[Rfam]
RNA sequence: UAAGCUGGCGAGAAUCAUUUGAAUCAAGCAAUGUAGUGAUUCAAAUGAUUCUCACAAAU
Numbered sequence: 001u002a003a004g005c006u007g008g009c010g011a012g013a014a015u016c017a018u019u020u021g022a023a024u025c026a027a028g029c030a031a032u033g034u035a036g037u038g039a040u041u042c043a044a045a046u047g048a049u050u051c052u053c054a055c056a057a058a059u
Stems, first nucleotide, its partner, number of pairs: 008055001010053017
RNA: Plastid-ccsA-ndhD-1 3UTR RNA
Organism: Berberidopsis corallina